[Rfam]
RNA sequence: UGUCGCGGCCUCCUCAUUGUGCAUGCUGUGUGUAUUUCUGUGUCGCACAGCGCCUGCAAUGUGGAGGCUGAGACG
Numbered sequence: 001u002g003u004c005g006c007g008g009c010c011u012c013c014u015c016a017u018u019g020u021g022c023a024u025g026c027u028g029u030g031u032g033u034a035u036u037u038c039u040g041u042g043u044c045g046c047a048c049a050g051c052g053c054c055u056g057c058a059a060u061g062u063g064g065a066g067g068c069u070g071a072g073a074c075g
Stems, first nucleotide, its partner, number of pairs: 012064002015061007024052001026050006

The family of this 75-nucleotide RNA sequence from Scophthalmus maximus is "mir-460 microRNA precursor family". Pairs were carried over by alignment from the consensus structure, which was predicted with RNAalifold. The source organism's lineage runs through Eukaryota, Actinopteri, Clupeocephala, Euteleosteomorpha and Scophthalmus. Gene Ontology terms of the family: RISC complex and miRNA-mediated post-transcriptional gene silencing.